[Rfam]
RNA: Gammaprotebacteria rimP leader
Organism: Paraglaciecola sp. T6c
RNA sequence: CAGUGAGAAUAGUGGACUAGGGUCCAGAAACAAAAAGCCCCGCUUGUACGGGGCUUUUUGUUAUCCUUUUUAUCCUGUUUUUAAUUUAUUCUGGGCUUAUGGCCCUUUUUUC
Numbered sequence: 001c002a003g004u005g006a007g008a009a010u011a012g013u014g015g016a017c018u019a020g021g022g023u024c025c026a027g028a029a030a031c032a033a034a035a036a037g038c039c040c041c042g043c044u045u046g047u048a049c050g051g052g053g054c055u056u057u058u059u060g061u062u063a064u065c066c067u068u069u070u071u072a073u074c075c076u077g078u079u080u081u082u083a084a085u086u087u088a089u090u091c092u093g094g095g096c097u098u099a100u101g102g103c104c105c106u107u108u109u110u111u112c
Base pairs, nucleotide, nucleotide: 034057035056036055037054038053039052040051041050042049093105094104095103096102